The family of this 74-nucleotide RNA from Cnephaeus nilssonii is "mir-9279 microRNA precursor family".
Pairs were carried over by alignment from the consensus structure, which was predicted with RNAalifold.
The source organism's lineage runs through Eukaryota, Dipnotetrapodomorpha, Boreoeutheria, Vespertilionidae and Cnephaeus.
The match comes from Rfam's covariance-model search (85 bits).

[Rfam]
RNA sequence: CUGGGUGAGGCCACACGUCCCUGGGUCUGGGUGAGGCCACGCGUCCCUGGGUCUGGGUGAGGCCAUGCGCCCCU
Numbered sequence: 001c002u003g004g005g006u007g008a009g010g011c012c013a014c015a016c017g018u019c020c021c022u023g024g025g026u027c028u029g030g031g032u033g034a035g036g037c038c039a040c041g042c043g044u045c046c047c048u049g050g051g052u053c054u055g056g057g058u059g060a061g062g063c064c065a066u067g068c069g070c071c072c073c074u
Stems, first nucleotide, its partner, number of pairs: 003072005009064004016059005023054009033045002036042002